[Rfam]
RNA sequence: GAUCAGCAGUGUGGUAUAGGCGGCUUGGACAGUGCCGCAUCGGAACUCUAUACCCGGAAGACUUGCAAAGGUGAUUUCCCUUCC
Numbered sequence: 001g002a003u004c005a006g007c008a009g010u011g012u013g014g015u016a017u018a019g020g021c022g023g024c025u026u027g028g029a030c031a032g033u034g035c036c037g038c039a040u041c042g043g044a045a046c047u048c049u050a051u052a053c054c055c056g057g058a059a060g061a062c063u064u065g066c067a068a069a070g071g072u073g074a075u076u077u078c079c080c081u082u083c084c
Base pairs, nucleotide, nucleotide: 013054014053015052016051017050018049019048020038021037022036023035024034
Annotation
The record is an 84-nucleotide sequence, which matches "HTH-XRE RNA" in Rfam. The family's consensus secondary structure is taken from published work. The sequence is in the family's curated seed alignment.